[Rfam]
RNA sequence: GUGGACCCAUUGGAGCUCUCUGCACUCCUACUCUGAAAGGUGGUGAUGGUAGACCACGGCUGCUAGUUCAUUAAUACCCCUAGUUACGCAGAAUGAUCAUAUAUAAUAAGAGUGCGUAGUCUAAGGGUUUGCAUGAACUGGGAGACGAGGUUACCUGAUCUUUUUGGUAUUGGAGUGAAGGGAGCUCCCCUGGUCUCUACG
Numbered sequence: 001g002u003g004g005a006c007c008c009a010u011u012g013g014a015g016c017u018c019u020c021u022g023c024a025c026u027c028c029u030a031c032u033c034u035g036a037a038a039g040g041u042g043g044u045g046a047u048g049g050u051a052g053a054c055c056a057c058g059g060c061u062g063c064u065a066g067u068u069c070a071u072u073a074a075u076a077c078c079c080c081u082a083g084u085u086a087c088g089c090a091g092a093a094u095g096a097u098c099a100u101a102u103a104u105a106a107u108a109a110g111a112g113u114g115c116g117u118a119g120u121c122u123a124a125g126g127g128u129u130u131g132c133a134u135g136a137a138c139u140g141g142g143a144g145a146c147g148a149g150g151u152u153a154c155c156u157g158a159u160c161u162u163u164u165u166g167g168u169a170u171u172g173g174a175g176u177g178a179a180g181g182g183a184g185c186u187c188c189c190c191u192g193g194u195c196u197c198u199a200c201g
Base pairs, nucleotide, nucleotide: 013187014186015185016184017183018182019181020180023177024176025175026174027173028172036164060144061143063141064140065139069135070134071133077127078126079125

Rfam assigns this 201-nucleotide RNA from Quercus lobata to the family "MIR159 microRNA precursor family". Rfam links the family to the GO terms miRNA-mediated post-transcriptional gene silencing and RISC complex. The source organism's lineage runs through Eukaryota, Embryophyta, Gunneridae, Fagaceae and Quercus. The match comes from Rfam's covariance-model search (105 bits). For this family Rfam cites "Computational identification of plant microRNAs and their targets, including a stress-induced miRNA" (Jones-Rhoades and Bartel, Mol Cell, 2004).